[Rfam]
RNA sequence: ACAGUGUCAAGGCUUGGUAACUCCACCACCGUUGGCGGGGAAUCAAUGGCCAAUGGGGUAAGAGUUUCCUUUCCUCGGCGUAGA
Number, nucleotide and partner (000 for none) at each position: 001a000002c000003a000004g081005u080006g079007u078008c077009a000010a075011g074012g073013c000014u000015u000016g069017g068018u000019a066020a065021c064022u063023c062024c000025a000026c000027c058028a000029c056030c055031g054032u053033u052034g051035g050036c049037g000038g000039g000040g000041a000042a000043u000044c000045a000046a000047u000048g000049g036050c035051c034052a033053a032054u031055g030056g029057g000058g027059u000060a000061a000062g023063a022064g021065u020066u019067u000068c017069c016070u000071u000072u000073c012074c011075u010076c000077g008078g007079c006080g005081u004082a000083g000084a000
The family of this 84-nucleotide sequence from Cephus cinctus is "mir-2765 microRNA precursor family". The match comes from Rfam's covariance-model search (69 bits). Rfam 15.1 lists 109 matches to the family in 106 species. Taxonomically the source falls in Cephus (Eukaryota, Metazoa, Panarthropoda, Pancrustacea).